[Rfam]
A member of the RNA family "Makes More Granules Regulator RNA (mmgR)", 77 nucleotides long.
The literature on the family includes a 2018 paper in Microbiology by Ceizel Borella et al., "Expression of the small regulatory RNA gene mmgR is regulated negatively by AniA and positively by NtrC in Sinorhizobium meliloti 2011".
Rfam describes the family as follows. SuhB later renamed mmgR (makes more granules regulator) was a putative non-coding RNA found multiple times in the Agrobacterium tumefaciens genome and related alpha-proteobacteria.
RNA sequence: CGCCCCUGCCUUUCAGGCAUCCUCUCCUAAAAACUCAGCUGGCCGGUCCUUCGGGACCGGCCUUUUUUUGUUAGCGG
Numbered sequence: 001c002g003c004c005c006c007u008g009c010c011u012u013u014c015a016g017g018c019a020u021c022c023u024c025u026c027c028u029a030a031a032a033a034c035u036c037a038g039c040u041g042g043c044c045g046g047u048c049c050u051u052c053g054g055g056a057c058c059g060g061c062c063u064u065u066u067u068u069u070g071u072u073a074g075c076g077g
Base pairs, nucleotide, nucleotide: 008018009017010016011015041062042061043060044059045058046057047056048055049054